RNA sequence: GAGGAGAGCUUUUAUUUCCCAAAAGAAAGCAAAAUAAUGUUAAAGCAUUCAUUCUGUAUCCGAAUUCGUCUUAUCCCUUGACGUUGCUUUAACAUUAUUCUCCCUAAUACUCCCUUUAACCGCAUCCCCCUGGUGCGGUUAUAUUU
Numbered sequence: 001g002a003g004g005a006g007a008g009c010u011u012u013u014a015u016u017u018c019c020c021a022a023a024a025g026a027a028a029g030c031a032a033a034a035u036a037a038u039g040u041u042a043a044a045g046c047a048u049u050c051a052u053u054c055u056g057u058a059u060c061c062g063a064a065u066u067c068g069u070c071u072u073a074u075c076c077c078u079u080g081a082c083g084u085u086g087c088u089u090u091a092a093c094a095u096u097a098u099u100c101u102c103c104c105u106a107a108u109a110c111u112c113c114c115u116u117u118a119a120c121c122g123c124a125u126c127c128c129c130c131u132g133g134u135g136c137g138g139u140u141a142u143a144u145u146u
Base pairs, nucleotide, nucleotide: 003103004102005101006100007099008030009029010028011027012026013025015023016022017021034098035097036096037095038094039093040092041091042090043089044088045087046086051065052064053063054062068082069081070080117141118140119139120138121137122136123135124134125133126132